[Rfam]
RNA sequence: AUGCAUCCAGUAGGAAUUGAAUAUACGAGCUUGUUAAUUAUGAGUUGGGCACUUUAACCAUUCAGCCAUUGAUGC
Numbered sequence: 001a002u003g004c005a006u007c008c009a010g011u012a013g014g015a016a017u018u019g020a021a022u023a024u025a026c027g028a029g030c031u032u033g034u035u036a037a038u039u040a041u042g043a044g045u046u047g048g049g050c051a052c053u054u055u056a057a058c059c060a061u062u063c064a065g066c067c068a069u070u071g072a073u074g075c
Base pairs, nucleotide, nucleotide: 003075004074005073006072007071010026011025012024014022040069041068042067044066045065046064047063048062049061
RNA: Plastid-ycf2 5UTR RNA
Organism: Vanilla planifolia